A member of the RNA family "Saccharopolyspora sRNA 350" from Allostigmatella aurantiaca, 508 nucleotides long. Its family is annotated with regulation of secondary metabolite biosynthetic process in the Gene Ontology. The family has 2 seed sequences and 1,170 matches in Rfam 15.1.
[Rfam]
RNA sequence: UUGGCGGUGAACUGCCAGUAGUCCUGGGUCUCCAGCAGCGCCUGGUAGCUGUAGUGGUCGCCCUCGGCCAGCGUCUCGAGCACGGUCUGGUCGCCGUACUUGCCCUUGCCGAUCUUGUUCACCUUGCCGUAGGCGAUGAGGCAGAUGGAGUCGGCCUCCUUGCCCGCCUCGGUGAUGAUGUCCCCGGGCUUGUAGUCGCGCUGCUCGAAGCGCGAGGCCAGCCCGGCGAGCACGUCGUCAUCCGCGAAGCCGCGCAGCAGGGGCAGCUCCCGCAGCUCCUGCGGGAUGACCUGCACCUUGGCGCCCACGCUGGUGAAGGACACGCGGCCGUCGCCGACGUUGUAGCUCAGCCGGCGGUUGAGGCGGAAAAUGCCGCCGGAGACCUGGACCCACGGCAGCAGCUUCAGCAGCCACCGGGAGGAGAUGCCCUGCAUCUGCGGGGCGGACUUGGUCGUCGUCGCCAGCUGGCGCGCCGCAUCCGUCCCCAGGCUCAUCUGCUGCUUCUCUG
Numbered sequence: 001u002u003g004g005c006g007g008u009g010a011a012c013u014g015c016c017a018g019u020a021g022u023c024c025u026g027g028g029u030c031u032c033c034a035g036c037a038g039c040g041c042c043u044g045g046u047a048g049c050u051g052u053a054g055u056g057g058u059c060g061c062c063c064u065c066g067g068c069c070a071g072c073g074u075c076u077c078g079a080g081c082a083c084g085g086u087c088u089g090g091u092c093g094c095c096g097u098a099c100u101u102g103c104c105c106u107u108g109c110c111g112a113u114c115u116u117g118u119u120c121a122c123c124u125u126g127c128c129g130u131a132g133g134c135g136a137u138g139a140g141g142c143a144g145a146u147g148g149a150g151u152c153g154g155c156c157u158c159c160u161u162g163c164c165c166g167c168c169u170c171g172g173u174g175a176u177g178a179u180g181u182c183c184c185c186g187g188g189c190u191u192g193u194a195g196u197c198g199c200g201c202u203g204c205u206c207g208a209a210g211c212g213c214g215a216g217g218c219c220a221g222c223c224c225g226g227c228g229a230g231c232a233c234g235u236c237g238u239c240a241u242c243c244g245c246g247a248a249g250c251c252g253c254g255c256a257g258c259a260g261g262g263g264c265a266g267c268u269c270c271c272g273c274a275g276c277u278c279c280u281g282c283g284g285g286a287u288g289a290c291c292u293g294c295a296c297c298u299u300g301g302c303g304c305c306c307a308c309g310c311u312g313g314u315g316a317a318g319g320a321c322a323c324g325c326g327g328c329c330g331u332c333g334c335c336g337a338c339g340u341u342g343u344a345g346c347u348c349a350g351c352c353g354g355c356g357g358u359u360g361a362g363g364c365g366g367a368a369a370a371u372g373c374c375g376c377c378g379g380a381g382a383c384c385u386g387g388a389c390c391c392a393c394g395g396c397a398g399c400a401g402c403u404u405c406a407g408c409a410g411c412c413a414c415c416g417g418g419a420g421g422a423g424a425u426g427c428c429c430u431g432c433a434u435c436u437g438c439g440g441g442g443c444g445g446a447c448u449u450g451g452u453c454g455u456c457g458u459c460g461c462c463a464g465c466u467g468g469c470g471c472g473c474c475g476c477a478u479c480c481g482u483c484c485c486c487a488g489g490c491u492c493a494u495c496u497g498c499u500g501c502u503u504c505u506c507u508g
Base pairs, nucleotide, nucleotide: 006390007389008388011385015381018328019327021325022324025322026321029318031316032315036312037311038310039309040308045305048302049301050300051299054233055232058229059228060227061226062225065111066110067109068108077102078101079100080099082097083096084095085094086093117222118221119220122217123216126213127212130209132205133204134203135202138199140197143196150191154189155188156187157186161178165174166173167172234296235295237290238289239288240287241286242285251281252280254278256277257276258275260271261270262269329342330341332339351379352378353377354376355375356374357373361371391431392430394428395427396426397425399423403418404417405416407415437476438475439474440473442471443470444469448464449463450462451461452460477507481501482500486497487496488495